[Rfam]
RNA sequence: CAUGGCUAUCAAACUGUUUUUCUUCUUUUUCUUUUUUACCUUCUCAUGAGGAGGUUUUUUCGUUUUAAAAAGGAUAAGAAGACGAACAAAAAACCUCCCUACCAAUGGGAGGUUUUUUUUU
Numbered sequence: 001c002a003u004g005g006c007u008a009u010c011a012a013a014c015u016g017u018u019u020u021u022c023u024u025c026u027u028u029u030u031c032u033u034u035u036u037u038a039c040c041u042u043c044u045c046a047u048g049a050g051g052a053g054g055u056u057u058u059u060u061c062g063u064u065u066u067a068a069a070a071a072g073g074a075u076a077a078g079a080a081g082a083c084g085a086a087c088a089a090a091a092a093a094c095c096u097c098c099c100u101a102c103c104a105a106u107g108g109g110a111g112g113u114u115u116u117u118u119u120u121u
Stems, first nucleotide, its partner, number of pairs: 016087004021082007029074006036067001038065001042050001051061004091115009
About this RNA: Rfam assigns this 121-nucleotide RNA sequence from Xenorhabdus bovienii to the family "Phenylalanine leader peptide". For this family Rfam cites "Nucleotide sequence of the leader region of the phenylalanine operon of Escherichia coli" (Zurawski et al., Proc Natl Acad Sci U S A, 1978).